The record is an 88-nucleotide RNA sequence from Cellulomonas gilvus, which matches "ZMP/ZTP riboswitch aptamer (pfl RNA motif)" in Rfam. Taxonomically the source falls in Cellulomonas gilvus (Bacteria, Bacillati, Actinomycetota, Cellulomonadaceae).

RNA sequence: GACCGCGGCCGUGACUGGCGAGGGUGGGAGCGACCACCGGGGAGCGGCCGCAGUCCCCUGCAGCGCACCGCCCGCCUGGGUGCCUGGG
Numbered sequence: 001g002a003c004c005g006c007g008g009c010c011g012u013g014a015c016u017g018g019c020g021a022g023g024g025u026g027g028g029a030g031c032g033a034c035c036a037c038c039g040g041g042g043a044g045c046g047g048c049c050g051c052a053g054u055c056c057c058c059u060g061c062a063g064c065g066c067a068c069c070g071c072c073c074g075c076c077u078g079g080g081u082g083c084c085u086g087g088g
Base pairs, nucleotide, nucleotide: 003053005051006050007049008048009047010046011045012044015041016040017076018075019074020073024037025036026035027034065083066082067081068080069079